[Rfam]
Bacteroidales-1 6S-Bacteroidales RNA suggested: a 199-nucleotide RNA sequence from Muribaculum intestinale.
The organism belongs to Muribaculum, within Bacteria.

RNA sequence: CACCACAUCAAAGUAGAUUGGGAAACUCAUCAAUUAAUAAUGAAAUACCGAGACAAGCUUAGCUGUCUGAUGGCGGGCCCCAUCCCUCUUUUUCGGAGAGUGGAGGUGUCUACGACACCAAGGCGGAUUACAAAGGAUGGCGAGCGCUCAAAUCCUGUCAUUCGGAGUUUCAUCGCAUUCCUUUGAUGUGGCACUUUAA
Numbered sequence: 001c002a003c004c005a006c007a008u009c010a011a012a013g014u015a016g017a018u019u020g021g022g023a024a025a026c027u028c029a030u031c032a033a034u035u036a037a038u039a040a041u042g043a044a045a046u047a048c049c050g051a052g053a054c055a056a057g058c059u060u061a062g063c064u065g066u067c068u069g070a071u072g073g074c075g076g077g078c079c080c081c082a083u084c085c086c087u088c089u090u091u092u093u094c095g096g097a098g099a100g101u102g103g104a105g106g107u108g109u110c111u112a113c114g115a116c117a118c119c120a121a122g123g124c125g126g127a128u129u130a131c132a133a134a135g136g137a138u139g140g141c142g143a144g145c146g147c148u149c150a151a152a153u154c155c156u157g158u159c160a161u162u163c164g165g166a167g168u169u170u171c172a173u174c175g176c177a178u179u180c181c182u183u184u185g186a187u188g189u190g191g192c193a194c195u196u197u198a199a
Stems, first nucleotide, its partner, number of pairs: 057145003062141007071132002078126002081123001083097003
Dot-bracket structure: ........................................................(((..(((((((..((.....((.(.(((.........))).........................).))....))..))))))).)))......................................................
It scores 115 bits against the family's covariance model. Bacteroidales-1 was first reported in a comparative genomics-based approach of genome and metagenome sequences from Weinberg et al. 2010 In a high-resolution transcriptome map study of Bacteroides thetaiotaomicron, Ryan et al. 2020 report this sRNA as 6S RNA homologue of Bacteroides, in the study they obtain evidence of small product RNAs (pRNAs) related to 6S function. Pairs were carried over by alignment from the consensus structure, which is taken from published work.